[Rfam]
Nucleotides: 063
Base pairs, nucleotide, nucleotide: 010025011024012023013022016054017053018052020050021049033044034043035042
Number, partner (000 for none) and nucleotide at each position: 001000a002000a003000c004000g005000g006000u007000c008000g009000u010025g011024g012023c013022g014000a015000u016054g017053g018052g019000u020050c021049c022013c023012g024011c025010c026000c027000u028000c029000a030000a031000c032000c033044g034043c035042c036000c037000c038000u039000c040000g041000a042035g043034g044033c045000u046000g047000a048000u049021g050020g051000u052018c053017c054016c055000u056000a057000c058000g059000u060000c061000g062000u063000u
Shown here is a 63-nucleotide RNA sequence from Truepera radiovictrix, a member of the family "Fluoride riboswitch aptamer (crcB RNA motif)".
The organism belongs to Truepera radiovictrix, within Bacteria.
Pairs were carried over by alignment from the consensus structure, which is taken from published work.